[Rfam]
Nucleotides: 062
Stems, first nucleotide, its partner, number of pairs: 032058006039051002042048001
Number, partner (000 for none) and nucleotide at each position: 001000a002000a003000c004000c005000g006000g007000g008000c009000g010000c011000g012000a013000u014000u015000a016000c017000a018000u019000u020000a021000u022000a023000a024000a025000a026000g027000a028000g029000u030000g031000a032058a033057c034056a035055g036054g037053c038000a039051g040050c041000g042048c043000c044000a045000g046000c047000g048042g049000c050040g051039c052000u053037g054036c055035c056034u057033g058032u059000u060000a061000c062000u
A member of the RNA family "DnaX ribosomal frameshifting element" from Ruminococcaceae bacterium AF10-16, 62 nucleotides long. It is annotated as a frameshift element. About the family: This family represents a ribosomal frameshifting element found in the mRNA of the dnaX gene in E. coli. The dnaX gene has two encoded products tau and gamma which are produced in a 1:1 ratio. The gamma protein is synthesised due to programmed frameshifting and is shorter than tau. The organism belongs to Oscillospiraceae, within Bacteria.